This 72-nucleotide sequence from Acidipropionibacterium jensenii belongs to the Rfam family "Fluoride riboswitch aptamer (crcB RNA motif)". Lineage of the source: Bacteria > Actinomycetota > Propionibacteriales > Propionibacteriaceae > Acidipropionibacterium.
[Rfam]
RNA sequence: UGGCAGCAGGGCGAUGGAACCCGCCCGGGAGCUCUCCCGAACCGCCAAAUGGCUGAUGGUCCCUGCACGUCA
Numbered sequence: 001u002g003g004c005a006g007c008a009g010g011g012c013g014a015u016g017g018a019a020c021c022c023g024c025c026c027g028g029g030a031g032c033u034c035u036c037c038c039g040a041a042c043c044g045c046c047a048a049a050u051g052g053c054u055g056a057u058g059g060u061c062c063c064u065g066c067a068c069g070u071c072a
Stems, first nucleotide, its partner, number of pairs: 010025004016063002019060003044053003
It scores 41 bits against the family's covariance model. The base pairs follow the family's consensus structure, which is taken from published work.